[Rfam]
RNA sequence: CCCACAGAGUUCAUUGGCAUUCUGUCCACCUCCCCUAAUUUCUUCUGUUUGUAUGGUGGAGGUGGGCAUACUGCCAACUGAGCUCUGUUGG
Numbered sequence: 001c002c003c004a005c006a007g008a009g010u011u012c013a014u015u016g017g018c019a020u021u022c023u024g025u026c027c028a029c030c031u032c033c034c035c036u037a038a039u040u041u042c043u044u045c046u047g048u049u050u051g052u053a054u055g056g057u058g059g060a061g062g063u064g065g066g067c068a069u070a071c072u073g074c075c076a077a078c079u080g081a082g083c084u085c086u087g088u089u090g091g
Base pairs, nucleotide, nucleotide: 011081014077015076016075017074018073019072023068024067025066026065027064028063029062030061031060032059033058
Description:
Shown here is a 91-nucleotide sequence from Momordica charantia, a member of the family "MIR394 microRNA precursor family". Taxonomically the source falls in Momordica (Eukaryota, Viridiplantae, Euphyllophyta, Momordiceae). A search with the family's covariance model found it, with a score of 85 bits. Pairs were carried over by alignment from the consensus structure, which was predicted with WAR. The literature on the family includes a 2004 paper in Mol Cell by Jones-Rhoades and Bartel, "Computational identification of plant microRNAs and their targets, including a stress-induced miRNA".